[Rfam]
RNA sequence: UAGUGAUAAAGGCAAAUCCAUUGAAAAGUGGAGACGCAAAGCUAUAGGGGCUAAGACGGUAUUCCCGUUAUGCCAGCCAGUUGCCGUU
Numbered sequence: 001u002a003g004u005g006a007u008a009a010a011g012g013c014a015a016a017u018c019c020a021u022u023g024a025a026a027a028g029u030g031g032a033g034a035c036g037c038a039a040a041g042c043u044a045u046a047g048g049g050g051c052u053a054a055g056a057c058g059g060u061a062u063u064c065c066c067g068u069u070a071u072g073c074c075a076g077c078c079a080g081u082u083g084c085c086g087u088u
Stems, first nucleotide, its partner, number of pairs: 012037002017032006040082004047078002049074003056068004
c-di-GMP-I riboswitch aptamer: an 88-nucleotide RNA from Paenibacillus albiflavus. Rfam's curators write: GEMM was predicted in a large-scale screen for bacterial structured RNA regulatory elements. Gene Ontology term of the family: cyclic-di-GMP binding. The family's consensus secondary structure is taken from published work.